[Rfam]
RNA sequence: UCAUGCUAGAUGGGGACGUAGCGGAGCCCUGUAACCCACAAUCCGCUCUAGUGGGGUUGAAUUCCUUACCGAGGCUUUGCACCUGUUUGGUCAGCCCUUUGUAAGUGGUGUUGACGUCUGGGUCUUGCGCAAUGGAAACCUGUGAACCAUGUCAGGUCCGGAAGGAAGCAGCAUUAAGCAGUGCUUUCCAUGUGCCGCGAGGUCGCCUGGGCUGAGCUAACUGCAGAGGUAACGCAGAUGGAUGUAUCGCCGGAGUAAGGUGCAUGG
Numbered sequence: 001u002c003a004u005g006c007u008a009g010a011u012g013g014g015g016a017c018g019u020a021g022c023g024g025a026g027c028c029c030u031g032u033a034a035c036c037c038a039c040a041a042u043c044c045g046c047u048c049u050a051g052u053g054g055g056g057u058u059g060a061a062u063u064c065c066u067u068a069c070c071g072a073g074g075c076u077u078u079g080c081a082c083c084u085g086u087u088u089g090g091u092c093a094g095c096c097c098u099u100u101g102u103a104a105g106u107g108g109u110g111u112u113g114a115c116g117u118c119u120g121g122g123u124c125u126u127g128c129g130c131a132a133u134g135g136a137a138a139c140c141u142g143u144g145a146a147c148c149a150u151g152u153c154a155g156g157u158c159c160g161g162a163a164g165g166a167a168g169c170a171g172c173a174u175u176a177a178g179c180a181g182u183g184c185u186u187u188c189c190a191u192g193u194g195c196c197g198c199g200a201g202g203u204c205g206c207c208u209g210g211g212c213u214g215a216g217c218u219a220a221c222u223g224c225a226g227a228g229g230u231a232a233c234g235c236a237g238a239u240g241g242a243u244g245u246a247u248c249g250c251c252g253g254a255g256u257a258a259g260g261u262g263c264a265u266g267g
Stems, first nucleotide, its partner, number of pairs: 001267006009058003012030004019023001035055005064260006073251003080244002083241007094230001097228006105221002107218003116212008124201006130192002133190005140181004149174004157166003
This 267-nucleotide RNA from Listeria booriae belongs to the Rfam family "Bacterial large signal recognition particle RNA". Lineage of the source: Bacteria > Bacillati > Bacilli > Caryophanales > Listeria.